A member of the RNA family "mir-360 microRNA precursor family" from Caenorhabditis elegans, 62 nucleotides long. The family's consensus secondary structure was predicted with RNAalifold. The organism belongs to Caenorhabditis, within Eukaryota. The family has 4 seed sequences and 8 matches in Rfam 15.1.

RNA sequence: UUGUGACCGUUGUUACGGUCAAUUUGCAAAUUGAAAAAAUGACCGUAAUCCCGUUCACAAUA
Numbered sequence: 001u002u003g004u005g006a007c008c009g010u011u012g013u014u015a016c017g018g019u020c021a022a023u024u025u026g027c028a029a030a031u032u033g034a035a036a037a038a039a040u041g042a043c044c045g046u047a048a049u050c051c052c053g054u055u056c057a058c059a060a061u062a
Stems, first nucleotide, its partner, number of pairs: 001060006008053002012049010